A member of the RNA family "TPP riboswitch aptamer (THI element)" from Gemmobacter megaterium, 97 nucleotides long.
Pairs were carried over by alignment from the consensus structure, which is taken from published work.
Vitamin B(1) in its active form thiamin pyrophosphate (TPP) is an essential coenzyme that is synthesised by coupling of pyrimidine and thiazole moieties in bacteria.
The source organism's lineage runs through Bacteria, Pseudomonadota, Alphaproteobacteria, Paracoccaceae and Gemmobacter.
A search with the family's covariance model found it, with a score of 62 bits.
RNA sequence: CGGCUCGGACAGGGGCGUUCGCGUGCGCGCGGGCUGAGAAGCACCCUUUGAACCUGAACCAGAUCAUGCUGGCGUAGGGAGUUCUGAGAGCAGGCUU
Numbered sequence: 001c002g003g004c005u006c007g008g009a010c011a012g013g014g015g016c017g018u019u020c021g022c023g024u025g026c027g028c029g030c031g032g033g034c035u036g037a038g039a040a041g042c043a044c045c046c047u048u049u050g051a052a053c054c055u056g057a058a059c060c061a062g063a064u065c066a067u068g069c070u071g072g073c074g075u076a077g078g079g080a081g082u083u084c085u086g087a088g089a090g091c092a093g094g095c096u097u
Base pairs, nucleotide, nucleotide: 007084008083009082010081011047012046013045014044016041017034018033019032020031021030053078054077055076056075059072060071061070062069